[Rfam]
RNA sequence: UGGAAUUUUUGCUCUUUUAGUAUUUGUCCAGAAGGUUUCUCCUUGGGAGAAGCCCGC
Number, nucleotide and partner (000 for none) at each position: 001u000002g000003g000004a000005a000006u000007u000008u000009u000010u000011g000012c000013u000014c000015u000016u000017u000018u000019a000020g000021u000022a000023u000024u000025u000026g000027u000028c000029c000030a000031g000032a000033a000034g054035g053036u052037u051038u050039c049040u048041c047042c000043u000044u000045g000046g000047g041048a040049g039050a038051a037052g036053c035054c034055c000056g000057c000

The family of this 57-nucleotide sequence from Conger conger is "U7 small nuclear RNA". It scores 55 bits against the family's covariance model.